Record summary: A member of the RNA family "sRNA-Xcc1" from Dokdonella koreensis, 84 nucleotides long. A reference for the family is Chen et al. (2011), "sRNA-Xcc1, an integron-encoded transposon- and plasmid-transferred trans-acting sRNA, is under the positive control of the key virulence regulators HrpG and HrpX of Xanthomonas campestris pathovar campestris", RNA Biol. The family's RNA type in Rfam is small RNA. The match comes from Rfam's covariance-model search (64 bits). The organism belongs to Dokdonella koreensis, within Bacteria.
[Rfam]
RNA sequence: GCCGGGAGGGCGGCCAAUACAACACCCCGCAAGGGGAAAUACGCCCACCGUCUGUGUGCGGUUCUAGCCUCCCGGCACUCCGGC
Numbered sequence: 001g002c003c004g005g006g007a008g009g010g011c012g013g014c015c016a017a018u019a020c021a022a023c024a025c026c027c028c029g030c031a032a033g034g035g036g037a038a039a040u041a042c043g044c045c046c047a048c049c050g051u052c053u054g055u056g057u058g059c060g061g062u063u064c065u066a067g068c069c070u071c072c073c074g075g076c077a078c079u080c081c082g083g084c
Stems, first nucleotide, its partner, number of pairs: 001076009012045003016040001025036003048061004
Dot-bracket structure: (((((((((..(((.(........(((......)))...)..)))..((((......))))......)))))))))........